Shown here is a 47-nucleotide RNA, a member of the family "eL15-Euryarchaeota ribosomal protein leader".
Rfam's curators put it in the seed alignment.
By type it is a cis-regulatory leader.
A reference for the family is Eckert and Weinberg (2020), "Discovery of 20 novel ribosomal leader candidates in bacteria and archaea", BMC Microbiol.
[Rfam]
RNA sequence: UGGGAUAAGUUCCCAUAUGGAUGUGGCCCUCGUGGCUGAACAAAAGG
Numbered sequence: 001u002g003g004g005a006u007a008a009g010u011u012c013c014c015a016u017a018u019g020g021a022u023g024u025g026g027c028c029c030u031c032g033u034g035g036c037u038g039a040a041c042a043a044a045a046g047g
Base pairs, nucleotide, nucleotide: 001015002014003013004012005011018043020041025037026036027035028034